[Rfam]
RNA sequence: CCCCUUUUCAUUGGCGACCGAAACACCUAUAUCAGUUUCGUUGGCUUUCGGGCCAUCUAUGGCAAUAAACGGUCGGUGUAAUAAACCUAUUGGACCCGGGGGCGGUACCCGGCGCCUCCACCAAAAACCGGUCGGUCUCCCGAACUAUGGGCGUGACCGGCUUUUGAUGGGGGCGAAAUAGGAUCGACAAGGGCGUAAAGAUCGAACUUUUGCUCGGCAUGAUACCGCCGUUAUCGGGUCACAAGUGUAGUUGCAAACGACAACAACGCUAAGGGUUAUGCUCUCGCUGCCUAAUGGCGGUGCGGGAAAUCCGAACCAAGUCCUCUAGGUUAGCCCCUUGAGGCGGGGUCCGAAGGCACCUGGCAACAGAAGCCUUCACC
Numbered sequence: 001c002c003c004c005u006u007u008u009c010a011u012u013g014g015c016g017a018c019c020g021a022a023a024c025a026c027c028u029a030u031a032u033c034a035g036u037u038u039c040g041u042u043g044g045c046u047u048u049c050g051g052g053c054c055a056u057c058u059a060u061g062g063c064a065a066u067a068a069a070c071g072g073u074c075g076g077u078g079u080a081a082u083a084a085a086c087c088u089a090u091u092g093g094a095c096c097c098g099g100g101g102g103c104g105g106u107a108c109c110c111g112g113c114g115c116c117u118c119c120a121c122c123a124a125a126a127a128c129c130g131g132u133c134g135g136u137c138u139c140c141c142g143a144a145c146u147a148u149g150g151g152c153g154u155g156a157c158c159g160g161c162u163u164u165u166g167a168u169g170g171g172g173g174c175g176a177a178a179u180a181g182g183a184u185c186g187a188c189a190a191g192g193g194c195g196u197a198a199a200g201a202u203c204g205a206a207c208u209u210u211u212g213c214u215c216g217g218c219a220u221g222a223u224a225c226c227g228c229c230g231u232u233a234u235c236g237g238g239u240c241a242c243a244a245g246u247g248u249a250g251u252u253g254c255a256a257a258c259g260a261c262a263a264c265a266a267c268g269c270u271a272a273g274g275g276u277u278a279u280g281c282u283c284u285c286g287c288u289g290c291c292u293a294a295u296g297g298c299g300g301u302g303c304g305g306g307a308a309a310u311c312c313g314a315a316c317c318a319a320g321u322c323c324u325c326u327a328g329g330u331u332a333g334c335c336c337c338u339u340g341a342g343g344c345g346g347g348g349u350c351c352g353a354a355g356g357c358a359c360c361u362g363g364c365a366a367c368a369g370a371a372g373c374c375u376u377c378a379c380c
Stems, first nucleotide, its partner, number of pairs: 040057001042055005061214005071207001073205005086193003090190003096112005113175007215230004220241003225237002346361004352377006
RNA: Alphaproteobacteria transfer-messenger RNA